RNA sequence: UGGUGCCACAAUGUGGGGAUUGGAUACUGAGGCAGCAGUGAGGGAGACAUGAAAAGGAACGCGUUUGACAAAUUUUGAGACACAUCGGAGCCUCCCCUGGGAACCUGCCUAGGCUGAAACUGAAAGUAAGUGGAAAUGUCCGAUCAUGGGGCAAGAAUUGAGUCAGCAUGAGCUUUAUGUUAAGCAGUUAAAGGAUGCUUUAAAGACACCGGAAGUAAAGGUUAAGACUACGGAUUUGUUUCAUUUUUUUGAUUUUGUUAAAGAAAUUUGUCCCU
Numbered sequence: 001u002g003g004u005g006c007c008a009c010a011a012u013g014u015g016g017g018g019a020u021u022g023g024a025u026a027c028u029g030a031g032g033c034a035g036c037a038g039u040g041a042g043g044g045a046g047a048c049a050u051g052a053a054a055a056g057g058a059a060c061g062c063g064u065u066u067g068a069c070a071a072a073u074u075u076u077g078a079g080a081c082a083c084a085u086c087g088g089a090g091c092c093u094c095c096c097c098u099g100g101g102a103a104c105c106u107g108c109c110u111a112g113g114c115u116g117a118a119a120c121u122g123a124a125a126g127u128a129a130g131u132g133g134a135a136a137u138g139u140c141c142g143a144u145c146a147u148g149g150g151g152c153a154a155g156a157a158u159u160g161a162g163u164c165a166g167c168a169u170g171a172g173c174u175u176u177a178u179g180u181u182a183a184g185c186a187g188u189u190a191a192a193g194g195a196u197g198c199u200u201u202a203a204a205g206a207c208a209c210c211g212g213a214a215g216u217a218a219a220g221g222u223u224a225a226g227a228c229u230a231c232g233g234a235u236u237u238g239u240u241u242c243a244u245u246u247u248u249u250u251g252a253u254u255u256u257g258u259u260a261a262a263g264a265a266a267u268u269u270g271u272c273c274c275u
Base pairs, nucleotide, nucleotide: 006032007031013027014026015025037050038048039047082127083126085123086122092116096112099109100108137151139150140149141148142147159202160201161200162198163197209251211249212248213247214246215245219237220236221235222234223233260275263272264271
A member of the RNA family "Mason-Pfizer monkey virus packaging signal" from Nannospalax galili, 275 nucleotides long. Its family is annotated with viral genome packaging in the Gene Ontology. From the family's description: This family represents a group of sequences that are related to the Mason-Pfizer monkey virus (MPMV) packaging signal. The match comes from Rfam's covariance-model search (137 bits). Taxonomically the source falls in Nannospalax (Eukaryota, Bilateria, Mammalia, Euarchontoglires).